[Rfam]
RNA sequence: ACGACCUUACUUGAACAGGAUCUGUUCUAUAGGCUCGUACCUCUGUAUCCUUGAGUUCUAAGGAGACAGGAAACUAAGCCUGGUGGAUGAACUAUGGCCAAGAGAUAGAGCGUGAUUAAUAGCUCCAGACCUUCACUGGGCGGAGCCAUAGAGGAUCGUUCUCAGCCAUGGUGGUUGGGGAUGGUCUCUUGGCUGUCUGACAGGCU
Numbered sequence: 001a002c003g004a005c006c007u008u009a010c011u012u013g014a015a016c017a018g019g020a021u022c023u024g025u026u027c028u029a030u031a032g033g034c035u036c037g038u039a040c041c042u043c044u045g046u047a048u049c050c051u052u053g054a055g056u057u058c059u060a061a062g063g064a065g066a067c068a069g070g071a072a073a074c075u076a077a078g079c080c081u082g083g084u085g086g087a088u089g090a091a092c093u094a095u096g097g098c099c100a101a102g103a104g105a106u107a108g109a110g111c112g113u114g115a116u117u118a119a120u121a122g123c124u125c126c127a128g129a130c131c132u133u134c135a136c137u138g139g140g141c142g143g144a145g146c147c148a149u150a151g152a153g154g155a156u157c158g159u160u161c162u163c164a165g166c167c168a169u170g171g172u173g174g175u176u177g178g179g180g181a182u183g184g185u186c187u188c189u190u191g192g193c194u195g196u197c198u199g200a201c202a203g204g205c206u
Stems, first nucleotide, its partner, number of pairs: 001038002003035001005033003013027006043069004048064006078205005097193010107182001109160004119149002122146005130140003161179008
The record is a 206-nucleotide sequence from Ipomoea nil, which matches "Plant small nucleolar RNA U3" in Rfam. It is annotated as a C/D-box small nucleolar RNA. The source organism's lineage runs through Eukaryota, Viridiplantae, Tracheophyta, Solanales and Ipomoea. From the family's description: Small nucleolar RNAs (snoRNAs) are involved in the processing and modification of rRNA in the nucleolus. There are two main classes of snoRNAs: the box C/D class, and the box H/ACA class. U3 snoRNA is a member of the box C/D class. Indeed, the box C/D element is a subset of the six short sequence elements found in all U3 snoRNAs, namely boxes A, A', B, C, C', and D. The U3 snoRNA secondary structure is characterised by a small 5' domain (with boxes A and A'), and a larger 3' domain (with boxes B, C, C', and D), the two domains being linked by a single-stranded hinge. A search with the family's covariance model found it, with a score of 176 bits.